[Rfam]
Nucleotides: 193
Stems, first nucleotide, its partner, number of pairs: 018153003021148007030123007039084002043080006050071004055066002058062001086116003090112006097105002124141007159180006
Number, partner (000 for none) and nucleotide at each position: 001000c002000c003000u004000a005000u006000g007000c008000u009000c010000u011000a012000c013000g014000c015000a016000g017000c018153g019152g020151u021148c022147u023146c024145c025144u026143c027142u028000u029000u030123g031122g032121g033120g034119c035118c036117c037000u038000a039084g040083c041000c042000u043080c044079a045078g046077u047076a048075c049000a050071g051070c052069a053068a054000a055066g056065g057000a058062g059000u060000u061000c062058c063000g064000a065056c066055u067000c068053u069052u070051g071050c072000g073000c074000a075048g076047u077046g078045c079044u080043g081000u082000c083040g084039c085000c086116c087115g088114g089000a090112u091111c092110a093109u094108g095107c096000a097105c098104c099000c100000u101000u102000g103000u104098g105097g106000a107095g108094c109093g110092u111091g112090g113000c114088c115087c116086g117036g118035g119034g120033c121032c122031c123030c124141a125140g126139c127138g128137g129136a130135c131000c132000u133000c134000g135130g136129u137128u138127c139126g140125c141124u142027g143026g144025a145024g146023g147022g148021g149000u150000g151020g152019c153018c154000c155000u156000c157000c158000a159180c160179c161178u162177c163176g164175a165000a166000u167000c168000c169000c170000g171000u172000c173000c174000c175164u176163c177162g178161a179160g180159g181000a182000a183000c184000g185000a186000c187000u188000c189000g190000a191000u192000g193000a
This 193-nucleotide RNA sequence belongs to the Rfam family "psaA RNA". It is annotated as a cis-regulatory element.